[Rfam]
RNA sequence: CCGGACGCCCGAAUGGGGUCCGGUGGGAGCUGCCGGAAAUUCGGCGCCGCCCGUGUCCAUGUUGCUUCGCAAGGAGGAUGUGGAGAUGAGGA
Numbered sequence: 001c002c003g004g005a006c007g008c009c010c011g012a013a014u015g016g017g018g019u020c021c022g023g024u025g026g027g028a029g030c031u032g033c034c035g036g037a038a039a040u041u042c043g044g045c046g047c048c049g050c051c052c053g054u055g056u057c058c059a060u061g062u063u064g065c066u067u068c069g070c071a072a073g074g075a076g077g078a079u080g081u082g083g084a085g086a087u088g089a090g091g092a
Stems, first nucleotide, its partner, number of pairs: 001023006008017002031046005050090001052088003057083007065076003